The family of this 89-nucleotide RNA sequence from Desulfosarcina ovata is "c-di-GMP-I riboswitch aptamer". The family has 155 seed sequences and 5,092 matches in Rfam 15.1. Rfam links the family to the GO term cyclic-di-GMP binding.

RNA sequence: GCUCGAAAAAGGCAAAACAUCCGAAAGGAUGCGACGCAAAGCCAACGGCCUGAACCCGGGAUUCCGGGUAUGGCGGCAGGGCUGCCGAG
Numbered sequence: 001g002c003u004c005g006a007a008a009a010a011g012g013c014a015a016a017a018c019a020u021c022c023g024a025a026a027g028g029a030u031g032c033g034a035c036g037c038a039a040a041g042c043c044a045a046c047g048g049c050c051u052g053a054a055c056c057c058g059g060g061a062u063u064c065c066g067g068g069u070a071u072g073g074c075g076g077c078a079g080g081g082c083u084g085c086c087g088a089g
Base pairs, nucleotide, nucleotide: 012037013036018031019030020029021028022027040083041082042081043080047077048074049073050072055068056067057066058065

NCBI's taxonomy places the organism under Bacteria, Desulfobacteria, Desulfosarcinaceae, Desulfosarcina, Desulfosarcina ovata. Pairs were carried over by alignment from the consensus structure, which is taken from published work.